Shown here is an 86-nucleotide sequence from Actinomadura rudentiformis, a member of the family "Actino-pnp RNA". Taxonomically the source falls in Actinomadura (Bacteria, Bacillati, Actinomycetes, Thermomonosporaceae). The family's RNA type in Rfam is cis-regulatory element.
RNA sequence: GCCGGUCCUCGGUAGUGGCUCUCGGAGCAUGCUCCUCGCCCGAUCGGCGGGGACCCCGGAUCCGUGAGCUUCGAUCGAAGACCGGC
Numbered sequence: 001g002c003c004g005g006u007c008c009u010c011g012g013u014a015g016u017g018g019c020u021c022u023c024g025g026a027g028c029a030u031g032c033u034c035c036u037c038g039c040c041c042g043a044u045c046g047g048c049g050g051g052g053a054c055c056c057c058g059g060a061u062c063c064g065u066g067a068g069c070u071u072c073g074a075u076c077g078a079a080g081a082c083c084g085g086c
Stems, first nucleotide, its partner, number of pairs: 001086007009078005017070005023064004